[Rfam]
RNA sequence: CCCUCCGAAGUUUCCCCCAGGAUAGCUGGCGCUCGCCGAGACAGUUUCGUCCGGUAAAGCGAAUGAUUAGAGGAGUCCGUGCCGAAAUGGCGUGGAGCUAUUGUCAAACUUUGAACGGGCGAGAAGGGGUGCCUACCGCUCGAUCUGGGAGGCUCGGCCCCCGUCGAAAUGUACGAGUGCCAAGUGGGCCACUUUUGGUAAGCAGAACUGGCGCUGUGGGAUGAACCAAACGCCGGGUUAAGGCGCCCGAUCGUCACGCUCAGCAGAACCCACAAAAGGCGUCCAUCGGUAAAGACAGCAGGACGGUGACCAUGGAAGUCGGUAUCCGCCAAGGAGUGUGUAACAACUCACCUGCCGAAUUGGUGGGCCCUGAAAAUGGAUGGCGCUGUAGCGUGCAGCCUACACCCGGCCGUCUCGGCAAUUUUCUCCGGCCUGCCGGUAGAGACUGACCGAAGCCGAGACGAGUAGGAGGGUCGCCGCGGUCAGCGCUGAAGCCUUAGACGCGAGUCUGGGUGUAGCGGCCGCGGGUGCCGAU
Dot-bracket structure: ((((((....(.(((....))).)..(((((((...........((((((((....(((....((((.(.((...((((((.(.....).)))))).)).).))))..)).)....))))))))..(((.(((......................))).))).............))))))).....((((.(((((.....))))).))))....(((......)))...(((((.(...(((......(.(...(((.................(((.((((((((((.......(((((.(((..(((.........)))..)))(...)(...((......)).).)))))...)))))))))))))...................)))..)))))...).)))))(((((((((...................................)))))))))....)))))).(.((((((((.((......((....(((....)))...))...))))))))))..).....

Rfam assigns this 535-nucleotide part of an RNA to the family "Eukaryotic large subunit ribosomal RNA". The family's consensus secondary structure is taken from published work. For this family Rfam cites "Crystal structure of the ribosome at 5.5 A resolution" (Yusupov et al., Science, 2001). Its family is annotated with structural constituent of ribosome and ribosome in the Gene Ontology.